[Rfam]
RNA sequence: GGGGCUGUCCUGGUUUCGACGUGGGUUCGGGACCGGUGCGGUGCAUGUCGAGCUUGAGUGAUGCUCGUAAAUCUCCAUUCAAAAAACUAACUGCAAACGACGAACGUUUCGCACUCGCCGCUUAAUCCGGUGAGCCUUGCAACAGCACGCUAGUGGGCUGGGCAAGGGGGUAGCAAUACCUCCCGGCUGCAAGGGAAUUUACAUUAGCUGGCUGGAUACCGGGCUUCUUGGUAUUCGGCGAGAUUUAAGGAAGCUGGCUACCCAGACAGCGUGUGCCUGCGGGGUUUGGGUGGCGAGAUUCAAAACAGAGCACUAAACAUGUAGAUCUGUCCGGCGAAGGCUUACGGACGCGGGUUCAAUUCCCGCCAGCUCCAC
Numbered sequence: 001g002g003g004g005c006u007g008u009c010c011u012g013g014u015u016u017c018g019a020c021g022u023g024g025g026u027u028c029g030g031g032a033c034c035g036g037u038g039c040g041g042u043g044c045a046u047g048u049c050g051a052g053c054u055u056g057a058g059u060g061a062u063g064c065u066c067g068u069a070a071a072u073c074u075c076c077a078u079u080c081a082a083a084a085a086a087c088u089a090a091c092u093g094c095a096a097a098c099g100a101c102g103a104a105c106g107u108u109u110c111g112c113a114c115u116c117g118c119c120g121c122u123u124a125a126u127c128c129g130g131u132g133a134g135c136c137u138u139g140c141a142a143c144a145g146c147a148c149g150c151u152a153g154u155g156g157g158c159u160g161g162g163c164a165a166g167g168g169g170g171u172a173g174c175a176a177u178a179c180c181u182c183c184c185g186g187c188u189g190c191a192a193g194g195g196a197a198u199u200u201a202c203a204u205u206a207g208c209u210g211g212c213u214g215g216a217u218a219c220c221g222g223g224c225u226u227c228u229u230g231g232u233a234u235u236c237g238g239c240g241a242g243a244u245u246u247a248a249g250g251a252a253g254c255u256g257g258c259u260a261c262c263c264a265g266a267c268a269g270c271g272u273g274u275g276c277c278u279g280c281g282g283g284g285u286u287u288g289g290g291u292g293g294c295g296a297g298a299u300u301c302a303a304a305a306c307a308g309a310g311c312a313c314u315a316a317a318c319a320u321g322u323a324g325a326u327c328u329g330u331c332c333g334g335c336g337a338a339g340g341c342u343u344a345c346g347g348a349c350g351c352g353g354g355u356u357c358a359a360u361u362c363c364c365g366c367c368a369g370c371u372c373c374a375c
Stems, first nucleotide, its partner, number of pairs: 001373007020346008033334004038330004044321005049067005054082007115132001118129001120127001135194006143160004149208007211239009222255005258293010270281002273313004277308003350366005